[Rfam]
RNA sequence: UCAUUAAGUAAUGACGUGACAGACGGAGUGUAACAUCAUCACGUCCAAUCAUUGACACGUCAUUGAAGGUGAUGACAUGUCAGUGAUUGAACGUGAUGACGUAAUACUCCGUUUGUCGCGUCAUCACUUAACGGAA
Numbered sequence: 001u002c003a004u005u006a007a008g009u010a011a012u013g014a015c016g017u018g019a020c021a022g023a024c025g026g027a028g029u030g031u032a033a034c035a036u037c038a039u040c041a042c043g044u045c046c047a048a049u050c051a052u053u054g055a056c057a058c059g060u061c062a063u064u065g066a067a068g069g070u071g072a073u074g075a076c077a078u079g080u081c082a083g084u085g086a087u088u089g090a091a092c093g094u095g096a097u098g099a100c101g102u103a104a105u106a107c108u109c110c111g112u113u114u115g116u117c118g119c120g121u122c123a124u125c126a127c128u129u130a131a132c133g134g135a136a
Base pairs, nucleotide, nucleotide: 001134002133004131005130006129007128008127009126011124012123013122014121015120016119017118018117019116020115021114022113023112024111025110026109027108028107029106030105031104033102034101036099037098038097039096040095041094042093043092044091046089048087049086050085051084052083054081055080056079057078059076060075061074062073063072

MIR4371 microRNA precursor family: a 136-nucleotide RNA sequence from Glycine soja.
Rfam 15.1 lists 321 matches to the family in 4 species.
Its Rfam clan is "MIR4387 microRNA precursor clan".